Source information: Rfam assigns this 115-nucleotide RNA sequence from Novipirellula maiorica to the family "c-di-GMP-I-GGC riboswitch aptamer". A reference for the family is Weinberg et al. (2017), "Bioinformatic analysis of riboswitch structures uncovers variant classes with altered ligand specificity", Proc Natl Acad Sci U S A.

[Rfam]
RNA sequence: CGUGACAAAGGCAAACCGUUCGAGAGGACGGGGCGCAAAACCACGGGUCCGUGAGUGGUACGGUGGAUCGAUUUCCGAUCCAAAGUAUUGCUUCAGGAUUGCCAGGUUGCCACGG
Numbered sequence: 001c002g003u004g005a006c007a008a009a010g011g012c013a014a015a016c017c018g019u020u021c022g023a024g025a026g027g028a029c030g031g032g033g034c035g036c037a038a039a040a041c042c043a044c045g046g047g048u049c050c051g052u053g054a055g056u057g058g059u060a061c062g063g064u065g066g067a068u069c070g071a072u073u074u075c076c077g078a079u080c081c082a083a084a085g086u087a088u089u090g091c092u093u094c095a096g097g098a099u100u101g102c103c104a105g106g107u108u109g110c111c112a113c114g115g
Base pairs, nucleotide, nucleotide: 001115003112004111011036012035016031017030018029019028020027021026034101039108040107041106042105045103046102047099048098049097